[Rfam]
Annotation: The record is a 90-nucleotide RNA from Asparagus officinalis, which matches "Small nucleolar RNA U54" in Rfam. Its family is annotated with RNA processing and nucleolus in the Gene Ontology. By type it is a C/D-box small nucleolar RNA. Its Rfam clan is "U54 clan". Lineage of the source: Eukaryota > Viridiplantae > Tracheophyta > Spermatophyta > Asparagus. From the family's description: U54 is a C/D box small nucleolar RNA, which acts as a methylation guide for 18S ribosomal RNA in plants. Pairs were carried over by alignment from the consensus structure, which was predicted with PFOLD.
RNA sequence: GGCUCCAUGAUUGCAGUAAACACCAUUUGACAAUAUACGCUAUUCUGAGAAUGUUCAGUUUAAUGUUGACAAUGAAAUAGUAUGAGAGCU
Numbered sequence: 001g002g003c004u005c006c007a008u009g010a011u012u013g014c015a016g017u018a019a020a021c022a023c024c025a026u027u028u029g030a031c032a033a034u035a036u037a038c039g040c041u042a043u044u045c046u047g048a049g050a051a052u053g054u055u056c057a058g059u060u061u062a063a064u065g066u067u068g069a070c071a072a073u074g075a076a077a078u079a080g081u082a083u084g085a086g087a088g089c090u
Stems, first nucleotide, its partner, number of pairs: 001090005